This 159-nucleotide RNA from Vigna radiata belongs to the Rfam family "Small nucleolar RNA snoR2/U65".
RNA sequence: GGUCUGAUGACACAUUUAUGAUAGCUUGAAUUAAGCGGUGACCAGUGAUGCUAUGAUUGGACCAAAAUCAAAAGUGAAUUUCAUUUGUUUCGCAUUUUGAUAGGAAUCUAUGAAUUUCAUACUUUAUGAUCUGUGGAGCCGUUUUGUGCGAUUACAUUU
Numbered sequence: 001g002g003u004c005u006g007a008u009g010a011c012a013c014a015u016u017u018a019u020g021a022u023a024g025c026u027u028g029a030a031u032u033a034a035g036c037g038g039u040g041a042c043c044a045g046u047g048a049u050g051c052u053a054u055g056a057u058u059g060g061a062c063c064a065a066a067a068u069c070a071a072a073a074g075u076g077a078a079u080u081u082c083a084u085u086u087g088u089u090u091c092g093c094a095u096u097u098u099g100a101u102a103g104g105a106a107u108c109u110a111u112g113a114a115u116u117u118c119a120u121a122c123u124u125u126a127u128g129a130u131c132u133g134u135g136g137a138g139c140c141g142u143u144u145u146g147u148g149c150g151a152u153u154a155c156a157u158u159u
Stems, first nucleotide, its partner, number of pairs: 002062007009054001013050004020043001022041001024036003090151005103140002108136003112132001114130003

Record summary
Gene Ontology terms of the family: RNA processing and nucleolus. The family's consensus secondary structure was predicted with WAR. The source organism's lineage runs through Eukaryota, Viridiplantae, rosids, Vigna and Vigna radiata. The family is grouped with related families in Rfam's "SNORA65 clan". Rfam classes the family as an H/ACA-box small nucleolar RNA.